RNA: Small Cajal body-specific RNA 7
Organism: Dipodomys ordii
Nucleotides: 327
Base pairs, nucleotide, nucleotide: 001326002325003324004323198229199228200227201226202225203224204223205222208218209217210216211215
Number, partner (000 for none) and nucleotide at each position: 001326u002325g003324g004323a005000a006000a007000u008000g009000a010000u011000g012000a013000a014000a015000u016000g017000g018000a019000g020000a021000u022000a023000c024000u025000u026000g027000g028000g029000u030000g031000u032000u033000g034000a035000a036000u037000g038000g039000u040000g041000c042000a043000u044000g045000a046000c047000u048000g049000g050000a051000a052000a053000a054000a055000u056000u057000u058000u059000a060000u061000a062000u063000g064000u065000a066000u067000g068000u069000u070000g071000a072000g073000u074000a075000a076000u077000u078000c079000u080000a081000g082000c083000u084000u085000a086000g087000u088000a089000u090000u091000u092000u093000g094000u095000a096000g097000a098000u099000c100000g101000u102000u103000a104000a105000u106000a107000g108000u109000g110000u111000g112000u113000g114000u115000u116000u117000g118000u119000g120000u121000g122000u123000g124000u125000g126000u127000g128000u129000u130000c131000c132000u133000g134000u135000g136000u137000g138000u139000g140000u141000g142000g143000c144000g145000g146000c147000u148000a149000u150000g151000g152000a153000a154000g155000g156000g157000g158000g159000c160000a161000c162000u163000g164000a165000g166000c167000g168000g169000u170000g171000a172000u173000g174000c175000u176000g177000a178000u179000a180000u181000u182000g183000g184000a185000g186000u187000g188000c189000a190000u191000c192000u193000g194000a195000g196000g197000c198229u199228g200227u201226u202225g203224u204223a205222g206000a207000c208218a209217a210216a211215c212000c213000a214000g215211g216210u217209u218208u219000u220000g221000a222205u223204u224203a225202c226201a227200g228199c229198a230000u231000u232000g233000c234000u235000g236000a237000u238000g239000a240000u241000u242000a243000u244000a245000a246000c247000c248000c249000a250000a251000c252000a253000a254000u255000a256000g257000c258000u259000c260000a261000c262000c263000u264000g265000c266000c267000u268000a269000g270000c271000c272000c273000a274000g275000c276000a277000c278000c279000c280000u281000c282000a283000a284000a285000u286000c287000u288000c289000c290000a291000a292000c293000a294000g295000g296000u297000u298000c299000a300000u301000a302000g303000a304000a305000c306000a307000u308000g309000a310000u311000c312000c313000u314000g315000u316000g317000a318000u319000c320000u321000g322000a323004u324003c325002c326001a327000a